[Rfam]
RNA sequence: CUUCAACGACCCCAGCCACAAGGGCUGUUCGGGCGUGUGCUCCUGACCGUACGUGGCCAGCAGCGCCUGCGCCUC
Dot-bracket structure: .............((((.....)))).....(.....((...(((.(((....))).)))...))....).....
RNA: ASpks TB sRNA
Organism: Streptomyces sp. sk2.1